[Rfam]
RNA sequence: CCAGCUGGCCGGGCGGCCGCACGUGCAAGCGCCGAAAGGCCGCAUGUGAGGAAAGUCCGGGCUCCAUGGAACACGGUGCCGGAUAACGUCCGGCGGGGGCGACCCCAGGGACAGUGCCACAGAAAGCAAACCGCCAUCGCCUUCGGGUGAUGGCAAGGGUGAAAGGGUGGGGUAAGAGCCCACCGCGCGGCUGGCAACAGUCGUGGCAAGGCAAACCCCACCGGGAGCAAAACCGAAUAGGGACAGCGAGAGGGGAAACCCUUGGGGCUUGUUUCAGCCCGCUGUCCGGGUUGGUUGCGUGAGGUGCAUGGCAACGUGCCCCCAAGAUGAAUGGCCGCCACGUUCUGCUCGUGAGGGCGGGGCCAUACAAAACCCGGCUUACAGGCCAGCUGGCGCC
Numbered sequence: 001c002c003a004g005c006u007g008g009c010c011g012g013g014c015g016g017c018c019g020c021a022c023g024u025g026c027a028a029g030c031g032c033c034g035a036a037a038g039g040c041c042g043c044a045u046g047u048g049a050g051g052a053a054a055g056u057c058c059g060g061g062c063u064c065c066a067u068g069g070a071a072c073a074c075g076g077u078g079c080c081g082g083a084u085a086a087c088g089u090c091c092g093g094c095g096g097g098g099g100c101g102a103c104c105c106c107a108g109g110g111a112c113a114g115u116g117c118c119a120c121a122g123a124a125a126g127c128a129a130a131c132c133g134c135c136a137u138c139g140c141c142u143u144c145g146g147g148u149g150a151u152g153g154c155a156a157g158g159g160u161g162a163a164a165g166g167g168u169g170g171g172g173u174a175a176g177a178g179c180c181c182a183c184c185g186c187g188c189g190g191c192u193g194g195c196a197a198c199a200g201u202c203g204u205g206g207c208a209a210g211g212c213a214a215a216c217c218c219c220a221c222c223g224g225g226a227g228c229a230a231a232a233c234c235g236a237a238u239a240g241g242g243a244c245a246g247c248g249a250g251a252g253g254g255g256a257a258a259c260c261c262u263u264g265g266g267g268c269u270u271g272u273u274u275c276a277g278c279c280c281g282c283u284g285u286c287c288g289g290g291u292u293g294g295u296u297g298c299g300u301g302a303g304g305u306g307c308a309u310g311g312c313a314a315c316g317u318g319c320c321c322c323c324a325a326g327a328u329g330a331a332u333g334g335c336c337g338c339c340a341c342g343u344u345c346u347g348c349u350c351g352u353g354a355g356g357g358c359g360g361g362g363c364c365a366u367a368c369a370a371a372a373c374c375c376g377g378c379u380u381a382c383a384g385g386c387c388a389g390c391u392g393g394c395g396c397c
Stems, first nucleotide, its partner, number of pairs: 001393010011382001012339007020048007053380003057377005062227004069274004074223005079093005094108001095106004109218002114216002116212003131158002133154009166184006185207001186205008231296004241287006265280005303322002306319005